A member of the RNA family "U12 minor spliceosomal RNA" from Zingiber officinale, 157 nucleotides long. Clan: U2 clan. Gene Ontology terms of the family: U12 snRNP, pre-mRNA branch point binding and mRNA branch site recognition. The family has 62 seed sequences and 2,106 matches in Rfam 15.1. The literature on the family includes a 2002 paper in Mol Cell by Otake et al., "The divergent U12-type spliceosome is required for pre-mRNA splicing and is essential for development in Drosophila". Pairs were carried over by alignment from the consensus structure.
RNA sequence: CUGCCUUAAACUAAUGAGUAAGGAAAACAAAGCGGGCGGUGGGAGCUGCCCGCAGCGCUCAUAACAUUGCUUUGCGCAAGAAUUUAUGGAGGGGUGAUAGGCUGGCCGAGUGUUGACGCUGCUUACUUUGCAGAACUCACCCGUGCGGGCCUCCCGC
Numbered sequence: 001c002u003g004c005c006u007u008a009a010a011c012u013a014a015u016g017a018g019u020a021a022g023g024a025a026a027a028c029a030a031a032g033c034g035g036g037c038g039g040u041g042g043g044a045g046c047u048g049c050c051c052g053c054a055g056c057g058c059u060c061a062u063a064a065c066a067u068u069g070c071u072u073u074g075c076g077c078a079a080g081a082a083u084u085u086a087u088g089g090a091g092g093g094g095u096g097a098u099a100g101g102c103u104g105g106c107c108g109a110g111u112g113u114u115g116a117c118g119c120u121g122c123u124u125a126c127u128u129u130g131c132a133g134a135a136c137u138c139a140c141c142c143g144u145g146c147g148g149g150c151c152u153c154c155c156g157c
Stems, first nucleotide, its partner, number of pairs: 004023005032053008055077004092157001094155001096153001099152005105146001107143002110140003119133004